RNA sequence: UACCUGCAUCAAGAAUUGGGUUCGGUUCGACCCAUGCCAACCUGCCUUCCCGGGCAAGGUGGUCGCGAAAUGCGGAUGCGGUCCUGAUAGGGCAACCAAGCGGGCAUAC
Numbered sequence: 001u002a003c004c005u006g007c008a009u010c011a012a013g014a015a016u017u018g019g020g021u022u023c024g025g026u027u028c029g030a031c032c033c034a035u036g037c038c039a040a041c042c043u044g045c046c047u048u049c050c051c052g053g054g055c056a057a058g059g060u061g062g063u064c065g066c067g068a069a070a071u072g073c074g075g076a077u078g079c080g081g082u083c084c085u086g087a088u089a090g091g092g093c094a095a096c097c098a099a100g101c102g103g104g105c106a107u108a109c
Stems, first nucleotide, its partner, number of pairs: 006079005015035001017034005036063003041059003044055003049104004081093004
SAM-I/IV (S-adenosyl methionine) riboswitch aptamer: a 109-nucleotide sequence from Occallatibacter riparius. It scores 63 bits against the family's covariance model. The family's consensus secondary structure is taken from published work.